[Rfam]
RNA sequence: AGCCGUGUGGUGAGCACAAAGCGAACUAUUCUUUGGCCUUUUACUAAAGAAUACCUUGUGCUCUCCAAUCAAGACAGCAUACGCCUAUUUUUGGAAGGGUUUUCCUCGUUGAAUGCC
Numbered sequence: 001a002g003c004c005g006u007g008u009g010g011u012g013a014g015c016a017c018a019a020a021g022c023g024a025a026c027u028a029u030u031c032u033u034u035g036g037c038c039u040u041u042u043a044c045u046a047a048a049g050a051a052u053a054c055c056u057u058g059u060g061c062u063c064u065c066c067a068a069u070c071a072a073g074a075c076a077g078c079a080u081a082c083g084c085c086u087a088u089u090u091u092u093g094g095a096a097g098g099g100u101u102u103u104c105c106u107c108g109u110u111g112a113a114u115g116c117c
Base pairs, nucleotide, nucleotide: 003077005075006074008067009066010065012063013062014061015060016059017058018057027053028052029051030050031049032048033047034046097117098116101113102112
Shown here is a 117-nucleotide RNA sequence from Hibiscus syriacus, a member of the family "U5 spliceosomal RNA". Rfam links the family to the GO terms U5 snRNP and spliceosomal tri-snRNP complex assembly. The family's RNA type in Rfam is spliceosomal small nuclear RNA.